[Rfam]
RNA sequence: AAUAACCAAAUAUGAUACUAGGGCUAAGGGUCAACUUGGUAAUUUUUCUUACAUCUCCCCCUCCCGGAGCCCAUGUAUCAUAUAAGCCCCCAAAGUAAAGAGCCUUGAAUACUAGAAGAAAAAAACCUUGACCUAACAAGUUUAAGUGAAUACCAAAAAUUGUGGUCAUUUUAUUUCGAUCUUUCCA
Numbered sequence: 001a002a003u004a005a006c007c008a009a010a011u012a013u014g015a016u017a018c019u020a021g022g023g024c025u026a027a028g029g030g031u032c033a034a035c036u037u038g039g040u041a042a043u044u045u046u047u048c049u050u051a052c053a054u055c056u057c058c059c060c061c062u063c064c065c066g067g068a069g070c071c072c073a074u075g076u077a078u079c080a081u082a083u084a085a086g087c088c089c090c091c092a093a094a095g096u097a098a099a100g101a102g103c104c105u106u107g108a109a110u111a112c113u114a115g116a117a118g119a120a121a122a123a124a125a126c127c128u129u130g131a132c133c134u135a136a137c138a139a140g141u142u143u144a145a146g147u148g149a150a151u152a153c154c155a156a157a158a159a160u161u162g163u164g165g166u167c168a169u170u171u172u173a174u175u176u177c178g179a180u181c182u183u184u185c186c187a
Stems, first nucleotide, its partner, number of pairs: 145184002148181002153178001155176003

A member of the RNA family "Antisense RNA which regulates isiA expression" from Capsicum baccatum, 187 nucleotides long. The literature on the family includes a 2006 paper in Proc Natl Acad Sci U S A by Duhring et al., "An internal antisense RNA regulates expression of the photosynthesis gene isiA". It scores 187 bits against the family's covariance model.